[Rfam]
RNA sequence: AGUUUAGUUCGUAGGAACUAAAGAGAAGCAGAUCUAUUCUAUACCCGAGAAGUACCGAUACGCAAUGGGGA
Numbered sequence: 001a002g003u004u005u006a007g008u009u010c011g012u013a014g015g016a017a018c019u020a021a022a023g024a025g026a027a028g029c030a031g032a033u034c035u036a037u038u039c040u041a042u043a044c045c046c047g048a049g050a051a052g053u054a055c056c057g058a059u060a061c062g063c064a065a066u067g068g069g070g071a
Base pairs, nucleotide, nucleotide: 003023004022007018008017009016010015044069045068046067052061053060054059

Shown here is a 71-nucleotide sequence from Monsonia speciosa, a member of the family "Plastid-clpP 5UTR RNA". For this family Rfam cites "Retrograde signaling in plants: A critical review focusing on the GUN pathway and beyond" (Richter et al., Plant Commun, 2023). Rfam's curators write: Plastid clpP is a non-coding RNA (ncRNA) recognised in plastids. It is annotated as a cis-regulatory element.